This 82-nucleotide RNA sequence from Alkalibacillus haloalkaliphilus belongs to the Rfam family "c-di-GMP-I riboswitch aptamer".
RNA sequence: AAUCGAUAAUGGCAAACUUAUUGAAAAAUAAGGACGCAAAGCCAAGGGCCUAACGUUUUUACUAUGGCAGCCGGUUACCGAA
Numbered sequence: 001a002a003u004c005g006a007u008a009a010u011g012g013c014a015a016a017c018u019u020a021u022u023g024a025a026a027a028a029u030a031a032g033g034a035c036g037c038a039a040a041g042c043c044a045a046g047g048g049c050c051u052a053a054c055g056u057u058u059u060u061a062c063u064a065u066g067g068c069a070g071c072c073g074g075u076u077a078c079c080g081a082a
Stems, first nucleotide, its partner, number of pairs: 012037002017032006040076004046072002048068003055062002
Source information: NCBI's taxonomy places the organism under Bacteria, Bacillati, Bacilli, Bacillaceae, Alkalibacillus. The match comes from Rfam's covariance-model search (80 bits). About the family: GEMM was predicted in a large-scale screen for bacterial structured RNA regulatory elements.